[Rfam]
RNA sequence: CUCUGGAGAGAUCCCGCUGAACGUUACGGGGCACCCAAGGUGAAACUAAUAUUCCUAAUUAUAGGAAAGCUUAUUAGGUAACUCUCAGGUACAAAGGACAGAG
Numbered sequence: 001c002u003c004u005g006g007a008g009a010g011a012u013c014c015c016g017c018u019g020a021a022c023g024u025u026a027c028g029g030g031g032c033a034c035c036c037a038a039g040g041u042g043a044a045a046c047u048a049a050u051a052u053u054c055c056u057a058a059u060u061a062u063a064g065g066a067a068a069g070c071u072u073a074u075u076a077g078g079u080a081a082c083u084c085u086c087a088g089g090u091a092c093a094a095a096g097g098a099c100a101g102a103g
Stems, first nucleotide, its partner, number of pairs: 001103005012031004033090003037085001040084001042082001046077006
The record is a 103-nucleotide RNA from Paenibacillus foliorum, which matches "Glycine riboswitch aptamer" in Rfam. The source organism's lineage runs through Bacteria, Bacillati, Bacillota, Bacilli and Paenibacillus.